[Rfam]
RNA sequence: UGACCUCAAAUCAGGCAAGAUGACCCGCUGAAUUUAAGCAUAUCACUAAGCGGAGGAGAAGAAAAUAACCAUGAUUCCCCUAGUAGCGGCGAGCGAAGCGGGAGGAGCUCACGCUGGGAACCGGGCGCCUCGCGCGUCCGGGUUGUAGCCUUGCGAGACGGCGCCAGUGCCGCGCCGGACCCAAGUCGCUUGGAAGAGCGCAUCCGGAGAGGGUGAAAGUCCCGUCGGUGGUCCGGAGGGCGGUGCGCAGCGGGCCGCGCUCUACGAGUCGGGUUGUUUGGGAAUGCAGCCCCAAGUGGGUGGUAAACUUCACCUAAGGCUAAAUACCGGCGAGAGACCGAUAGCGAACAAGUACCGUGAGGGAAAGAUGAAAAGCACUUUGAAAAGAGGGUGAAAAGCGCUUGAAACCGCCAGGAGGGAAG
Numbered sequence: 001u002g003a004c005c006u007c008a009a010a011u012c013a014g015g016c017a018a019g020a021u022g023a024c025c026c027g028c029u030g031a032a033u034u035u036a037a038g039c040a041u042a043u044c045a046c047u048a049a050g051c052g053g054a055g056g057a058g059a060a061g062a063a064a065a066u067a068a069c070c071a072u073g074a075u076u077c078c079c080c081u082a083g084u085a086g087c088g089g090c091g092a093g094c095g096a097a098g099c100g101g102g103a104g105g106a107g108c109u110c111a112c113g114c115u116g117g118g119a120a121c122c123g124g125g126c127g128c129c130u131c132g133c134g135c136g137u138c139c140g141g142g143u144u145g146u147a148g149c150c151u152u153g154c155g156a157g158a159c160g161g162c163g164c165c166a167g168u169g170c171c172g173c174g175c176c177g178g179a180c181c182c183a184a185g186u187c188g189c190u191u192g193g194a195a196g197a198g199c200g201c202a203u204c205c206g207g208a209g210a211g212g213g214u215g216a217a218a219g220u221c222c223c224g225u226c227g228g229u230g231g232u233c234c235g236g237a238g239g240g241c242g243g244u245g246c247g248c249a250g251c252g253g254g255c256c257g258c259g260c261u262c263u264a265c266g267a268g269u270c271g272g273g274u275u276g277u278u279u280g281g282g283a284a285u286g287c288a289g290c291c292c293c294a295a296g297u298g299g300g301u302g303g304u305a306a307a308c309u310u311c312a313c314c315u316a317a318g319g320c321u322a323a324a325u326a327c328c329g330g331c332g333a334g335a336g337a338c339c340g341a342u343a344g345c346g347a348a349c350a351a352g353u354a355c356c357g358u359g360a361g362g363g364a365a366a367g368a369u370g371a372a373a374a375g376c377a378c379u380u381u382g383a384a385a386a387g388a389g390g391g392u393g394a395a396a397a398g399c400g401c402u403u404g405a406a407a408c409c410g411c412c413a414g415g416a417g418g419g420a421a422g
Stems, first nucleotide, its partner, number of pairs: 024055001025053005035042002065072002076103004086094002106321004113149004118144002121141007155262002159257002164253002167246007175236007185201001187200004205209001212222002271292007298315005355362002378389004
The record is a 422-nucleotide part of an RNA from Cyanidioschyzon merolae, which matches "Eukaryotic large subunit ribosomal RNA" in Rfam. Taxonomically the source falls in Cyanidioschyzon (Eukaryota, Bangiophyceae, Cyanidiales, Cyanidiaceae). Rfam's curators put it in the seed alignment. The family's consensus secondary structure is taken from published work.